[Rfam]
RNA sequence: UCGGCGAAUGCUGGUGGAACUACAGGAAUCCAAUCCCCGAGUCGCGGGUUCGAAUCCCGCCAUCGCUUGCGAUGUAGCUCAGUCUGGUAGAGCAGGUCAUAUUUCACCCUCCCCUUGUCGCUGGGAC
Numbered sequence: 001u002c003g004g005c006g007a008a009u010g011c012u013g014g015u016g017g018a019a020c021u022a023c024a025g026g027a028a029u030c031c032a033a034u035c036c037c038c039g040a041g042u043c044g045c046g047g048g049u050u051c052g053a054a055u056c057c058c059g060c061c062a063u064c065g066c067u068u069g070c071g072a073u074g075u076a077g078c079u080c081a082g083u084c085u086g087g088u089a090g091a092g093c094a095g096g097u098c099a100u101a102u103u104u105c106a107c108c109c110u111c112c113c114c115u116u117g118u119c120g121c122u123g124g125g126a127c
Base pairs, nucleotide, nucleotide: 002123003122004121005120006119007118013108014107015106016105017104018103019102037096038095044060045059046058047057048056051087061074062073063072064071065070077093078092079091080090